This 104-nucleotide part of an RNA from Apis florea belongs to the Rfam family "Eukaryotic large subunit ribosomal RNA".
The sequence is in the family's curated seed alignment.
RNA sequence: CGGCUCUUCCUAUCAUUGCGAAGCAGAAUUCGCCAAGCGUCGGAUUGUUCACCCGCCAACAGGGAACGUGAGCUGGGUUUAGACCGUCGUGAGACAGGUUAGUU
Numbered sequence: 001c002g003g004c005u006c007u008u009c010c011u012a013u014c015a016u017u018g019c020g021a022a023g024c025a026g027a028a029u030u031c032g033c034c035a036a037g038c039g040u041c042g043g044a045u046u047g048u049u050c051a052c053c054c055g056c057c058a059a060c061a062g063g064g065a066a067c068g069u070g071a072g073c074u075g076g077g078u079u080u081a082g083a084c085c086g087u088c089g090u091g092a093g094a095c096a097g098g099u100u101a102g103u104u
Stems, first nucleotide, its partner, number of pairs: 001076001002074004006068001007065005014039001018033005041055003045051001082100004086095003
Dot-bracket structure: (((((((((((..(...(((((......))))).....).(((.(.....).))).....)))))..)..)))).).....(((((((....))).))))....